RNA sequence: UGACUGAGUGGAAUAUCCGGUUAUCCAAAAGGUAACGGGCUCCUGUGGGGACACUCAGUUGGGAUGCUUAACAUACAAUGAACUAGACAGUUAAUCUAAUCUUCAUAGGAUUUAUAUAAAAGCAAAAGAGCCCCACGGUACAUGUUGAAAGGCGGUUAAUUCCUAGCCCCCUCAAGGAACUAGGAGCAUAGAAGGUCGCAAGCCUGAUAUGUUUUAUCGGAAAAAGAAUUUAGCGUCUUAGCGGAUGCGAACGGGUCGCAAGCUCGGAAGGAAUGGAACGAUAGAGUAGACAUGUAUGACACUCCCACAGCAUGGAGUCUAAAUAUUGCACCGCUGUUCGGAUACCAGUGAGAACUGGUGGAUAAGCCCUAAGACAUACGGGUAGUGAAAGACCGGACAAUGUAAGCCGUAAUCUCAGGCU
Numbered sequence: 001u002g003a004c005u006g007a008g009u010g011g012a013a014u015a016u017c018c019g020g021u022u023a024u025c026c027a028a029a030a031g032g033u034a035a036c037g038g039g040c041u042c043c044u045g046u047g048g049g050g051a052c053a054c055u056c057a058g059u060u061g062g063g064a065u066g067c068u069u070a071a072c073a074u075a076c077a078a079u080g081a082a083c084u085a086g087a088c089a090g091u092u093a094a095u096c097u098a099a100u101c102u103u104c105a106u107a108g109g110a111u112u113u114a115u116a117u118a119a120a121a122g123c124a125a126a127a128g129a130g131c132c133c134c135a136c137g138g139u140a141c142a143u144g145u146u147g148a149a150a151g152g153c154g155g156u157u158a159a160u161u162c163c164u165a166g167c168c169c170c171c172u173c174a175a176g177g178a179a180c181u182a183g184g185a186g187c188a189u190a191g192a193a194g195g196u197c198g199c200a201a202g203c204c205u206g207a208u209a210u211g212u213u214u215u216a217u218c219g220g221a222a223a224a225a226g227a228a229u230u231u232a233g234c235g236u237c238u239u240a241g242c243g244g245a246u247g248c249g250a251a252c253g254g255g256u257c258g259c260a261a262g263c264u265c266g267g268a269a270g271g272a273a274u275g276g277a278a279c280g281a282u283a284g285a286g287u288a289g290a291c292a293u294g295u296a297u298g299a300c301a302c303u304c305c306c307a308c309a310g311c312a313u314g315g316a317g318u319c320u321a322a323a324u325a326u327u328g329c330a331c332c333g334c335u336g337u338u339c340g341g342a343u344a345c346c347a348g349u350g351a352g353a354a355c356u357g358g359u360g361g362a363u364a365a366g367c368c369c370u371a372a373g374a375c376a377u378a379c380g381g382g383u384a385g386u387g388a389a390a391g392a393c394c395g396g397a398c399a400a401u402g403u404a405a406g407c408c409g410u411a412a413u414c415u416c417a418g419g420c421u
Base pairs, nucleotide, nucleotide: 001061002060003059004058005057006056007055008054009053010043011042012041014039017038018037020036021035022034023033024032025031045136046135047134048133049132050131122199123198138297139296140295141294142293143292144291145290146289152334153333154332155331156330161185162184163183164182165181166180168177169176186212187211188210189209190208193205194204195203196202215283216282217281218280219279229270230269231268233248234247235246236245252267254265255263256262310329311328312327315324336398337397338396340394341393343360344359345358346357347356348355349354361414362413363412366386368382369381370380406420407419408418
Rfam assigns this 421-nucleotide RNA sequence from Pogseptimavirus VspSw1 to the family "Giant, ornate, lake- and Lactobacillales-derived (GOLLD) RNA".
By type it is a non-coding RNA gene.